[Rfam]
RNA sequence: UAACCCGGGCCGAGAGGCCCGGCUGAACCGGCAGAAGUCAGCAAAGGCCAUAGUACCGGCAGGGGGACGCCCCGACCGGGAAGGGC
Number, nucleotide and partner (000 for none) at each position: 001u025002a024003a000004c000005c022006c021007g020008g019009g018010c017011c016012g000013a000014g000015a000016g011017g010018c009019c008020c007021g006022g005023c000024u002025g001026a000027a000028c000029c000030g000031g000032c000033a000034g000035a000036a000037g000038u045039c000040a000041g000042c000043a000044a000045a038046g000047g086048c085049c084050a000051u000052a000053g000054u000055a000056c079057c078058g077059g000060c000061a000062g073063g072064g000065g000066g000067a000068c000069g000070c000071c000072c063073c062074g000075a000076c000077c058078g057079g056080g000081a000082a000083g000084g049085g048086c047
The family of this 86-nucleotide sequence from Symbiobacterium thermophilum is "Group II catalytic intron D1-D4-1". It is one of the family's seed sequences. The base pairs follow the family's consensus structure. Rfam's curators write: Group II introns are found in rRNA, tRNA and mRNA of organelles in fungi, plants and protists, and also in mRNA in bacteria.